[Rfam]
RNA sequence: GUUUGUGUGUGGAUGGUGUUCAGCACCAGUGACAGGUGUGUUUGUGUGUGGAUGGUGUGUUCAGCACCAAGGGCAUCUAUGUUCCAAU
Numbered sequence: 001g002u003u004u005g006u007g008u009g010u011g012g013a014u015g016g017u018g019u020u021c022a023g024c025a026c027c028a029g030u031g032a033c034a035g036g037u038g039u040g041u042u043u044g045u046g047u048g049u050g051g052a053u054g055g056u057g058u059g060u061u062c063a064g065c066a067c068c069a070a071g072g073g074c075a076u077c078u079a080u081g082u083u084c085c086a087a088u
Stems, first nucleotide, its partner, number of pairs: 001078001004075003014069007022061004026055003032045003